RNA sequence: AAAAAAGAUAGAGGUCGCACUCUUCAUGAGUAGGAUUUCGGAUGCGUCAGGCGCAGUAGAUGAGAUCAGAAAGGGAACAGUGCCGAAAGAAAGCUUGUCCUGCAGCAAGAUUUCUUGGGCAUGGCGUGAAUAACGACAUGACUGUCAUCAAGAGGAUGGAGAGCUAUCGGUUUG
Numbered sequence: 001a002a003a004a005a006a007g008a009u010a011g012a013g014g015u016c017g018c019a020c021u022c023u024u025c026a027u028g029a030g031u032a033g034g035a036u037u038u039c040g041g042a043u044g045c046g047u048c049a050g051g052c053g054c055a056g057u058a059g060a061u062g063a064g065a066u067c068a069g070a071a072a073g074g075g076a077a078c079a080g081u082g083c084c085g086a087a088a089g090a091a092a093g094c095u096u097g098u099c100c101u102g103c104a105g106c107a108a109g110a111u112u113u114c115u116u117g118g119g120c121a122u123g124g125c126g127u128g129a130a131u132a133a134c135g136a137c138a139u140g141a142c143u144g145u146c147a148u149c150a151a152g153a154g155g156a157u158g159g160a161g162a163g164c165u166a167u168c169g170g171u172u173u174g
Stems, first nucleotide, its partner, number of pairs: 007168005017083005023077003034067007087116006094109005117143002120140004125135003145159005
The family of this 174-nucleotide RNA from Clostridium sp. CAG:75 is "Lysine riboswitch aptamer". The source organism's lineage runs through Bacteria, Bacillati, Bacillota, Clostridiaceae and Clostridium. Rfam describes the family as follows. Riboswitches are metabolite binding domains within certain messenger RNAs that serve as precision sensors for their corresponding targets. Allosteric rearrangement of mRNA structure is mediated by ligand binding, and this results in modulation of gene expression. The match comes from Rfam's covariance-model search (118 bits).